[Rfam]
RNA sequence: UUAGGUUAACCACAUAAAAUAUGUCGAUCUUCUUUAAUCGUAUGCAUUCGCCUCAAUAAGUCAUAAAACCUUAUGUGUUUUCUACGUAAGGUUGAUGCGUAUAAUUAAAGAAUGUUAUAUUUUAUGUGAUUAACCUAACU
Number, nucleotide and partner (000 for none) at each position: 001u138002u137003a136004g135005g134006u133007u132008a131009a130010c000011c128012a127013c126014a125015u124016a123017a122018a121019a120020u119021a118022u117023g116024u000025c114026g000027a000028u000029c000030u112031u111032c110033u109034u108035u107036a106037a105038u104039c000040g102041u101042a100043u099044g098045c097046a096047u095048u094049c000050g092051c091052c090053u089054c000055a000056a000057u000058a000059a000060g000061u000062c000063a000064u000065a000066a000067a000068a000069c000070c000071u000072u000073a000074u000075g000076u000077g000078u000079u000080u000081u000082c000083u000084a000085c000086g000087u000088a000089a053090g052091g051092u050093u000094g048095a047096u046097g045098c044099g043100u042101a041102u040103a000104a038105u037106u036107a035108a034109a033110g032111a031112a030113u000114g025115u000116u023117a022118u021119a020120u019121u018122u017123u016124a015125u014126g013127u012128g011129a000130u009131u008132a007133a006134c005135c004136u003137a002138a001139c000140u000
Overview:
A member of the RNA family "MIR7993 microRNA precursor family" from Solanum tuberosum, 140 nucleotides long. Pairs were carried over by alignment from the consensus structure, which was predicted with RNAalifold. A search with the family's covariance model found it, with a score of 103 bits. Gene Ontology terms of the family: miRNA-mediated post-transcriptional gene silencing and RISC complex.